[Rfam]
RNA sequence: AUACCGCCGGUGAUCGGGACAUAUCACCACCUCCCUGUUGGACUUGCCCGGACGUAUCGUCCGGGCAUUUUU
Numbered sequence: 001a002u003a004c005c006g007c008c009g010g011u012g013a014u015c016g017g018g019a020c021a022u023a024u025c026a027c028c029a030c031c032u033c034c035c036u037g038u039u040g041g042a043c044u045u046g047c048c049c050g051g052a053c054g055u056a057u058c059g060u061c062c063g064g065g066c067a068u069u070u071u072u
Stems, first nucleotide, its partner, number of pairs: 009028006046066008
RNA: Singlet oxygen resistance RNA X